Shown here is a 59-nucleotide RNA sequence from Microbacterium aerolatum, a member of the family "msiK RNA". The match comes from Rfam's covariance-model search (64 bits).
RNA sequence: UCACCGCUUCCAUCACAACGGAUCGUCCGGCACGUACCUGCCGGUGAAGGAGAAACAAU
Numbered sequence: 001u002c003a004c005c006g007c008u009u010c011c012a013u014c015a016c017a018a019c020g021g022a023u024c025g026u027c028c029g030g031c032a033c034g035u036a037c038c039u040g041c042c043g044g045u046g047a048a049g050g051a052g053a054a055a056c057a058a059u
Base pairs, nucleotide, nucleotide: 009051010050011049013047014046015045027044028043029042030041031040032039
Rfam 15.1 lists 1,374 matches to the family in 1,364 species.
It is annotated as a cis-regulatory element.